A member of the RNA family "Group II catalytic intron D1-D4-6" from Paraburkholderia sp. BL10I2N1, 217 nucleotides long. It scores 133 bits against the family's covariance model. Group II introns are found in rRNA, tRNA and mRNA of organelles in fungi, plants and protists, and also in mRNA in bacteria. The literature on the family includes a 2001 paper in Trends Genet by Bonen and Vogel, "The ins and outs of group II introns".
[Rfam]
RNA sequence: CGACUCCCUCCCGGCAAAGGCUAACCACCAGCCGGAAGCAAGCCUUGCAUGCGAGUGCGGUAACGCACUACUUGAAGCGUAGGCAGCGGGUACUUAAGCCGUGUGAUUGAGCCUCGAUAUGAAGUAACCGUUGGUGUCUUCACUUUUCAAAUACUGGGGACUGCACUGUGUGAGCCGUAAUGGUGAGGCUCGCCAGGCCGACCGGGGUCUGAGAGCA
Numbered sequence: 001c002g003a004c005u006c007c008c009u010c011c012c013g014g015c016a017a018a019g020g021c022u023a024a025c026c027a028c029c030a031g032c033c034g035g036a037a038g039c040a041a042g043c044c045u046u047g048c049a050u051g052c053g054a055g056u057g058c059g060g061u062a063a064c065g066c067a068c069u070a071c072u073u074g075a076a077g078c079g080u081a082g083g084c085a086g087c088g089g090g091u092a093c094u095u096a097a098g099c100c101g102u103g104u105g106a107u108u109g110a111g112c113c114u115c116g117a118u119a120u121g122a123a124g125u126a127a128c129c130g131u132u133g134g135u136g137u138c139u140u141c142a143c144u145u146u147u148c149a150a151a152u153a154c155u156g157g158g159g160a161c162u163g164c165a166c167u168g169u170g171u172g173a174g175c176c177g178u179a180a181u182g183g184u185g186a187g188g189c190u191c192g193c194c195a196g197g198c199c200g201a202c203c204g205g206g207g208u209c210u211g212a213g214a215g216c217a
Base pairs, nucleotide, nucleotide: 011035012034013033014032015031019029020028022186024184025183038087039086042084043083044082045081046079047078048074049073051071054069055068056067057066058065059064108211109209111208112207113206114205115204116203130202131201132200133199134198135197136161137160138159141156142155144153166196167195168194170193171192172191173190174189175188176187
Dot-bracket structure: ..........(((((...((.[.[[..)).)))))..((..((((((((.(..((((((....)))))).).))...)).)))).))....................((.((((((.............(((((((((..((.(........).))..)))....(((.(((((((......]].]))))))))))))))))))))))).)......